[Rfam]
RNA sequence: GCAUAUUUCAUGUUUGUGCAUGAAUCUAACAUAUGAUCCUUGGGGUGUGUUAGAUUCACGCACAAACAUGUAAUAUGUCU
Numbered sequence: 001g002c003a004u005a006u007u008u009c010a011u012g013u014u015u016g017u018g019c020a021u022g023a024a025u026c027u028a029a030c031a032u033a034u035g036a037u038c039c040u041u042g043g044g045g046u047g048u049g050u051u052a053g054a055u056u057c058a059c060g061c062a063c064a065a066a067c068a069u070g071u072a073a074u075a076u077g078u079c080u
Stems, first nucleotide, its partner, number of pairs: 001078003005074003011068009021058006028051003032047002